[Rfam]
RNA: JUMPstart RNA
Organism: Escherichia coli
RNA sequence: UAGUGCACUGGUAGCUGUUAAGCCAGGGGCGGUAGCUUG
Numbered sequence: 001u002a003g004u005g006c007a008c009u010g011g012u013a014g015c016u017g018u019u020a021a022g023c024c025a026g027g028g029g030c031g032g033u034a035g036c037u038u039g
Stems, first nucleotide, its partner, number of pairs: 008026005